[Rfam]
Nucleotides: 038
Base pairs, nucleotide, nucleotide: 002021003020004019005018010037011036012035
Number, partner (000 for none) and nucleotide at each position: 001000a002021a003020g004019g005018u006000g007000g008000u009000a010037u011036c012035u013000g014000a015000a016000a017000a018005g019004c020003c021002u022000u023000u024000u025000c026000a027000a028000u029000a030000g031000a032000g033000u034000a035012g036011g037010a038000a